The record is an 83-nucleotide RNA sequence from Paenibacillus solanacearum, which matches "ZMP/ZTP riboswitch aptamer (pfl RNA motif)" in Rfam.
The family's consensus secondary structure is taken from published work.
The source organism's lineage runs through Bacteria, Bacillati, Bacillota, Paenibacillaceae and Paenibacillus.
Gene Ontology terms of the family: one-carbon metabolic process and regulation of purine nucleotide biosynthetic process.
RNA sequence: AAACCCGUGCGCAACUGGCGAUAAAGGUGGAGCAACCACCGGGGAGCGUGCGGGGAUAUCGGCCGGUCGCCUGGGCAAAGUAU
Numbered sequence: 001a002a003a004c005c006c007g008u009g010c011g012c013a014a015c016u017g018g019c020g021a022u023a024a025a026g027g028u029g030g031a032g033c034a035a036c037c038a039c040c041g042g043g044g045a046g047c048g049u050g051c052g053g054g055g056a057u058a059u060c061g062g063c064c065g066g067u068c069g070c071c072u073g074g075g076c077a078a079a080g081u082a083u
Stems, first nucleotide, its partner, number of pairs: 004054009015043002017071005027039004062076003